Neisseria metabolic switch regulator b (RcoF1/NgncR163): a 90-nucleotide sequence from Neisseria leonii.
By type it is a small RNA.
Its family is annotated with protein binding, regulation of translation, ncRNA-mediated and mRNA binding in the Gene Ontology.
About the family: Sibling sRNA described and independently named in three publications. NgncR163 is N. gonorrhoeae while the others are N. meningitidis RNAs.

RNA sequence: CCGUUGAGCAGCAGAACUGCUGUUUAACAGUUUCUCCUCUAUUUCUCCUUUGUAGACUUGGCACACAUUUGAAAAAAUGUGUGCAUUUUU
Numbered sequence: 001c002c003g004u005u006g007a008g009c010a011g012c013a014g015a016a017c018u019g020c021u022g023u024u025u026a027a028c029a030g031u032u033u034c035u036c037c038u039c040u041a042u043u044u045c046u047c048c049u050u051u052g053u054a055g056a057c058u059u060g061g062c063a064c065a066c067a068u069u070u071g072a073a074a075a076a077a078u079g080u081g082u083g084c085a086u087u088u089u090u
Base pairs, nucleotide, nucleotide: 003028004027005026006025007024008023009022010021011020038056039055040054041053042052061084062083063082064081065080066079067078068077069076070075